[Rfam]
A member of the RNA family "FMN riboswitch aptamer (RFN element)" from Vagococcus zengguangii, 133 nucleotides long. Gene Ontology term of the family: FMN binding.

RNA sequence: GUUCGUCUUCAGGGGCAGGGUGCAAUUCCCGACCGGUGGUUAUAGUCCACGACCUAUGGCUAGUUUACUAGUUCAUGGCUGAUUUGGUGAAAUUCCAAAACCGACAGUAUAGUCUGGUAUAAAGAGGAUUGAG
Numbered sequence: 001g002u003u004c005g006u007c008u009u010c011a012g013g014g015g016c017a018g019g020g021u022g023c024a025a026u027u028c029c030c031g032a033c034c035g036g037u038g039g040u041u042a043u044a045g046u047c048c049a050c051g052a053c054c055u056a057u058g059g060c061u062a063g064u065u066u067a068c069u070a071g072u073u074c075a076u077g078g079c080u081g082a083u084u085u086g087g088u089g090a091a092a093u094u095c096c097a098a099a100a101c102c103g104a105c106a107g108u109a110u111a112g113u114c115u116g117g118u119a120u121a122a123a124g125a126g127g128a129u130u131g132a133g
Stems, first nucleotide, its partner, number of pairs: 003131001005129006018030003032113002034103002036050004045101002054078004083099005105116003